[Rfam]
RNA sequence: UUCCCGGCUGGACUCUCCAGCGACUGCCUCGUGGACCUCGUCAAGAGGCCACUGAGAUGAUAACGCGUUUUUUACGGAUGUGUUUUGUGCGCGUGUGGAUGCCCUCCUAACCUUACGAGUGCCGGAGAGGAGACAAAAACAAGUCCUAGUU
Numbered sequence: 001u002u003c004c005c006g007g008c009u010g011g012a013c014u015c016u017c018c019a020g021c022g023a024c025u026g027c028c029u030c031g032u033g034g035a036c037c038u039c040g041u042c043a044a045g046a047g048g049c050c051a052c053u054g055a056g057a058u059g060a061u062a063a064c065g066c067g068u069u070u071u072u073u074a075c076g077g078a079u080g081u082g083u084u085u086u087g088u089g090c091g092c093g094u095g096u097g098g099a100u101g102c103c104c105u106c107c108u109a110a111c112c113u114u115a116c117g118a119g120u121g122c123c124g125g126a127g128a129g130g131a132g133a134c135a136a137a138a139a140c141a142a143g144u145c146c147u148a149g150u151u
Base pairs, nucleotide, nucleotide: 007021008020009019010018011017012016027059028056029055030054031052032051033050034049036048037047038046077145078144079143080140081139083138084137085136086135087134088133102130103129104127105126106125107124114121115120